[Rfam]
RNA sequence: GGAGCCGACAAAGUGGUUGUGGAAUGUUCUGUAUCCGCAUAUCACAGCCAGCUUUGUUGACUUCGU
Numbered sequence: 001g002g003a004g005c006c007g008a009c010a011a012a013g014u015g016g017u018u019g020u021g022g023a024a025u026g027u028u029c030u031g032u033a034u035c036c037g038c039a040u041a042u043c044a045c046a047g048c049c050a051g052c053u054u055u056g057u058u059g060a061c062u063u064c065g066u
Base pairs, nucleotide, nucleotide: 006059007058008057009056010055011054012053013052014050015049016048017047018046019045020044021043022042025041026040027039
The record is a 66-nucleotide RNA from Vanessa tameamea, which matches "mir-2 microRNA precursor family" in Rfam. NCBI's taxonomy places the organism under Eukaryota, Eumetabola, Endopterygota, Ditrysia, Vanessa. A search with the family's covariance model found it, with a score of 50 bits. Pairs were carried over by alignment from the consensus structure, which was predicted with PFOLD. Rfam links the family to the GO terms RISC complex and miRNA-mediated post-transcriptional gene silencing.